[Rfam]
RNA sequence: AAAAAAAAUUAAUAUAUAAUAUAGCUAUAAAGUGCUGUGUUUAUUAUUCCCUUAGUUCAAAAUAAAGUGUUUCUUAACUAUACCUGUCUGCUCUACCCCUGUAGCAGACAGGGAUGCUUGGACUCAAAUAU
Dot-bracket structure: ..(..((........((((((((((........))))))).))).......))..)..........................((((.((((............)))).))))...................
The record is a 131-nucleotide sequence from Otolemur garnettii, which matches "Small nucleolar RNA SNORA63" in Rfam. The family's consensus secondary structure was predicted with PFOLD. The organism belongs to Otolemur, within Eukaryota. About the family: E3 belongs to the H/ACA class of snoRNAs and is involved in the processing of eukaryotic pre-rRNA and has regions of complementarity to 18S rRNA. E3 is encoded in introns in the gene for protein synthesis initiation factor 4AII. It scores 106 bits against the family's covariance model. A reference for the family is Mishra and Eliceiri (1997), "Three small nucleolar RNAs that are involved in ribosomal RNA precursor processing", Proc Natl Acad Sci U S A. It is annotated as an H/ACA-box small nucleolar RNA.